The record is a 76-nucleotide sequence from Pachycephala philippinensis, which matches "Small nucleolar RNA SNORD79" in Rfam. The literature on the family includes a 2002 paper in Mol Cell Biol by Galardi et al., "Purified box C/D snoRNPs are able to reproduce site-specific 2'-O-methylation of target RNA in vitro". The family's RNA type in Rfam is C/D-box small nucleolar RNA. Taxonomically the source falls in Pachycephala (Eukaryota, Opisthokonta, Sauropsida, Archelosauria). A search with the family's covariance model found it, with a score of 72 bits. Its Rfam clan is "SNORD74 clan".

RNA sequence: UACUGUUUGUGAUGAAUUCUAAGCAAUGGGAAUCUCUCUGAAAGAGGCUGAGGAAAACUCUUGCACUGAAACAGUA
Numbered sequence: 001u002a003c004u005g006u007u008u009g010u011g012a013u014g015a016a017u018u019c020u021a022a023g024c025a026a027u028g029g030g031a032a033u034c035u036c037u038c039u040g041a042a043a044g045a046g047g048c049u050g051a052g053g054a055a056a057a058c059u060c061u062u063g064c065a066c067u068g069a070a071a072c073a074g075u076a
Stems, first nucleotide, its partner, number of pairs: 001076007
About this RNA: About the family: snoRNA U79 or Z22 is found in intron 7 of the gas5 gene in humans and is also present in mice.